Shown here is a 79-nucleotide RNA from Pan paniscus, a member of the family "mir-BART17 microRNA precursor family".
Lineage of the source: Eukaryota > Craniata > Gnathostomata > Teleostomi > Pan.
It scores 76 bits against the family's covariance model.
RNA sequence: UGUGGCACCCUAAGAGGUCACGAGCAUCCGAGGUUAUUAUCCAGCCCUUGGAUGCCCGGGGACCCCUUAGUGGAACACA
Dot-bracket structure: ((((...(((((((.((((.((.(((...((((............))))...))).))..)))).))))).))..))))